The record is a 307-nucleotide RNA from Channa argus, which matches "Nuclear RNase P" in Rfam. The match comes from Rfam's covariance-model search (220 bits). Ribonuclease P (RNase P) is a ubiquitous endoribonuclease, found in archaea, bacteria and eukarya as well as chloroplasts and mitochondria. Its best characterised activity is the generation of mature 5'-ends of tRNAs by cleaving the 5'-leader elements of precursor-tRNAs. Cellular RNase Ps are ribonucleoproteins. RNA from bacterial RNase Ps retains its catalytic activity in the absence of the protein subunit, i.e. it is a ribozyme. Gene Ontology terms of the family: ribonuclease P activity, tRNA processing and ribonuclease P complex.

RNA sequence: GUGGGCGGAAGCUCAUUGUAGAGGUCACAUGCCGAGUGCUCGUCACUCCACCAAUCACCUCGGGGAAGGUCUGAGACAGGAGCCAAUAGCUGCCCUAGCAGGGCAUCACCUGAUUCGGGUGAGCGAGCGAACAGAAAGAAUGGGCCACUGUGAGCUGCUUCUCACAGGAGAAGCCAGAUGGCGCAAACUCGGCGCCACUGGUGGAUGUGAAGCUCACGGGUUUGGAAUCACUCGCGGCUGGCGAAUGAGUGCGAUGUAUGAGGUGGAGCACGGCUCCAGAACCCAAUUCAGACUACUCUCCACCCAC
Numbered sequence: 001g002u003g004g005g006c007g008g009a010a011g012c013u014c015a016u017u018g019u020a021g022a023g024g025u026c027a028c029a030u031g032c033c034g035a036g037u038g039c040u041c042g043u044c045a046c047u048c049c050a051c052c053a054a055u056c057a058c059c060u061c062g063g064g065g066a067a068g069g070u071c072u073g074a075g076a077c078a079g080g081a082g083c084c085a086a087u088a089g090c091u092g093c094c095c096u097a098g099c100a101g102g103g104c105a106u107c108a109c110c111u112g113a114u115u116c117g118g119g120u121g122a123g124c125g126a127g128c129g130a131a132c133a134g135a136a137a138g139a140a141u142g143g144g145c146c147a148c149u150g151u152g153a154g155c156u157g158c159u160u161c162u163c164a165c166a167g168g169a170g171a172a173g174c175c176a177g178a179u180g181g182c183g184c185a186a187a188c189u190c191g192g193c194g195c196c197a198c199u200g201g202u203g204g205a206u207g208u209g210a211a212g213c214u215c216a217c218g219g220g221u222u223u224g225g226a227a228u229c230a231c232u233c234g235c236g237g238c239u240g241g242c243g244a245a246u247g248a249g250u251g252c253g254a255u256g257u258a259u260g261a262g263g264u265g266g267a268g269c270a271c272g273g274c275u276c277c278a279g280a281a282c283c284c285a286a287u288u289c290a291g292a293c294u295a296c297u298c299u300c301c302a303c304c305c306a307c
Stems, first nucleotide, its partner, number of pairs: 001307004007301003012262005021061004034048005071291005081239004091105005106122006123235005129229001144221003264278006